[Rfam]
This 67-nucleotide RNA from Bombyx mori belongs to the Rfam family "mir-2774 microRNA precursor family". NCBI's taxonomy places the organism under Eukaryota, Eumetabola, Heteroneura, Ditrysia, Bombyx. A reference for the family is Liu et al. (2010), "MicroRNAs of Bombyx mori identified by Solexa sequencing", BMC Genomics. Pairs were carried over by alignment from the consensus structure, which was predicted with RNAalifold.
RNA sequence: ACAACAUUGAAAUCGUCGUUCUACCGAGUAAUAUCACACGCUUGGUGGAAGAUCUUUCUUUCGUCGU
Dot-bracket structure: ...((.....((..(((..((((((((((..........)))))))))).)))..)).....))...